[Rfam]
RNA sequence: CACGUCCGUACACCGGACGCCCUGACGCGCGCGCCCCCGGCAUGGUUAGGCUGGCCCGGUGCGCCUCCCCCGAAGGGAGCCGCAAAGCCGACAGCCGUCGCAUCCCAGGGAGCAUUCUCAUG
Dot-bracket structure: ...........................................................((((.((((.......)))).))))..((.(((....))))).....................
A member of the RNA family "Streptomyces-metH RNA", 122 nucleotides long. The match comes from Rfam's covariance-model search (101 bits). It is annotated as a small RNA.